[Rfam]
RNA sequence: UUCCUUGUGCUAAGGUGCAUCUAGUGCAGUUAGUGGACUAGCUUAUAAUCUACUGCCCUGAGUGCUCCUUCUGGCACACGGA
Numbered sequence: 001u002u003c004c005u006u007g008u009g010c011u012a013a014g015g016u017g018c019a020u021c022u023a024g025u026g027c028a029g030u031u032a033g034u035g036g037a038c039u040a041g042c043u044u045a046u047a048a049u050c051u052a053c054u055g056c057c058c059u060g061a062g063u064g065c066u067c068c069u070u071c072u073g074g075c076a077c078a079c080g081g082a
Stems, first nucleotide, its partner, number of pairs: 004080001006078002009075003013069003017065004022060003026056002029054001031052003
Dot-bracket structure: ...(.((.(((.(((.((((.(((.((.(.(((................))).))).))).)))).)))...))).)).)..
Rfam assigns this 82-nucleotide sequence from Notechis scutatus to the family "mir-17 microRNA precursor family". Lineage of the source: Eukaryota > Bilateria > Gnathostomata > Lepidosauria > Notechis. From the family's description: This family represents the microRNA (miRNA) precursor mir-17, family, which includes mir-20, mir-91, and mir-103. miRNAs are transcribed as ~70nt precursors (modelled here) and subsequently processed by the Dicer enzyme to give a ~22nt product. Pairs were carried over by alignment from the consensus structure, which was predicted with RNAalifold. The match comes from Rfam's covariance-model search (57 bits). Its family is annotated with miRNA-mediated post-transcriptional gene silencing and RISC complex in the Gene Ontology. On this family, see Liu et al., J Mol Biol 2025: "Structural Features Within Precursor microRNA-20a Regulate Dicer-TRBP Processing".